[Rfam]
RNA sequence: ACGGGUGUAGCUCAAUUGGCAGAGCAGCCGUCUCCAAAGCGGCAGGUUGGGGGUUCGAUUCCCUCCGCCCGUG
Numbered sequence: 001a002c003g004g005g006u007g008u009a010g011c012u013c014a015a016u017u018g019g020c021a022g023a024g025c026a027g028c029c030g031u032c033u034c035c036a037a038a039g040c041g042g043c044a045g046g047u048u049g050g051g052g053g054u055u056c057g058a059u060u061c062c063c064u065c066c067g068c069c070c071g072u073g
Stems, first nucleotide, its partner, number of pairs: 001072007010025004027043005049065005
The family of this 73-nucleotide RNA sequence from Pirellula staleyi is "tRNA". By type it is a transfer RNA. A search with the family's covariance model found it, with a score of 66 bits.